[Rfam]
RNA sequence: UCCGAUAAGAGCAAAACCGGGGAAACCCGGUGACGCAAAGCCACGGGUCACGUUUGUGAUAGCCGGGCCACCGAAG
Numbered sequence: 001u002c003c004g005a006u007a008a009g010a011g012c013a014a015a016a017c018c019g020g021g022g023a024a025a026c027c028c029g030g031u032g033a034c035g036c037a038a039a040g041c042c043a044c045g046g047g048u049c050a051c052g053u054u055u056g057u058g059a060u061a062g063c064c065g066g067g068c069c070a071c072c073g074a075a076g
Stems, first nucleotide, its partner, number of pairs: 001076001003073002011036002016031006034062001040068003044065003047060003
RNA: c-di-GMP-I-GGC riboswitch aptamer
Organism: Trichloromonas acetexigens